Shown here is a 131-nucleotide RNA from Mycobacterium marinum, a member of the family "ALIL pseudoknot". Its family is annotated with positive regulation of translational frameshifting in the Gene Ontology. A search with the family's covariance model found it, with a score of 63 bits. Lineage of the source: Bacteria > Bacillati > Actinomycetota > Mycobacteriales > Mycobacterium marinum. Rfam 15.1 lists 2,146 matches to the family in 1,098 species. The family's RNA type in Rfam is cis-regulatory element.

[Rfam]
RNA sequence: AGCUGAUUCUUUCUGGCGGAGCUCGACCGCCAACGCAGGAAGUAGUCGUGUGCAAUGACACGAAUCGCGACGAAUUCGGGGGUCGAGCCCACCUGCACCGGCUGUGAUCGGCAGUCGGGCGGGUGGCCCCG
Numbered sequence: 001a002g003c004u005g006a007u008u009c010u011u012u013c014u015g016g017c018g019g020a021g022c023u024c025g026a027c028c029g030c031c032a033a034c035g036c037a038g039g040a041a042g043u044a045g046u047c048g049u050g051u052g053c054a055a056u057g058a059c060a061c062g063a064a065u066c067g068c069g070a071c072g073a074a075u076u077c078g079g080g081g082g083u084c085g086a087g088c089c090c091a092c093c094u095g096c097a098c099c100g101g102c103u104g105u106g107a108u109c110g111g112c113a114g115u116c117g118g119g120c121g122g123g124u125g126g127c128c129c130c131g
Stems, first nucleotide, its partner, number of pairs: 015031005077131005089126002092123005098117001